The family of this 207-nucleotide sequence from Trinickia fusca is "Burkholderia sRNA Bp1_Cand738_SIPHT".
The match comes from Rfam's covariance-model search (148 bits).
RNA sequence: CGCAAAACCAGCGUGUGCGCUGGCGAAGACAACAAAUCUGGCCGUAAAAGUGCCCUGCAGGAGUGGCAUACGGUGACGCGCGUCGCGUCAAGGACCGGGGGGCAGUGAACUCAAAACGGUUGGCCCUGCAACCAACGUGGACGGAUUCUAUGCACGGUUUUAUAGUUCGUCAACGGUAUAAGAUUGCAAAAGAAUAACAAAAUGUAA
Numbered sequence: 001c002g003c004a005a006a007a008c009c010a011g012c013g014u015g016u017g018c019g020c021u022g023g024c025g026a027a028g029a030c031a032a033c034a035a036a037u038c039u040g041g042c043c044g045u046a047a048a049a050g051u052g053c054c055c056u057g058c059a060g061g062a063g064u065g066g067c068a069u070a071c072g073g074u075g076a077c078g079c080g081c082g083u084c085g086c087g088u089c090a091a092g093g094a095c096c097g098g099g100g101g102g103c104a105g106u107g108a109a110c111u112c113a114a115a116a117c118g119g120u121u122g123g124c125c126c127u128g129c130a131a132c133c134a135a136c137g138u139g140g141a142c143g144g145a146u147u148c149u150a151u152g153c154a155c156g157g158u159u160u161u162a163u164a165g166u167u168c169g170u171c172a173a174c175g176g177u178a179u180a181a182g183a184u185u186g187c188a189a190a191a192g193a194a195u196a197a198c199a200a201a202a203u204g205u206a207a
Stems, first nucleotide, its partner, number of pairs: 008023006043107003051068004075089005136175003141170004148165003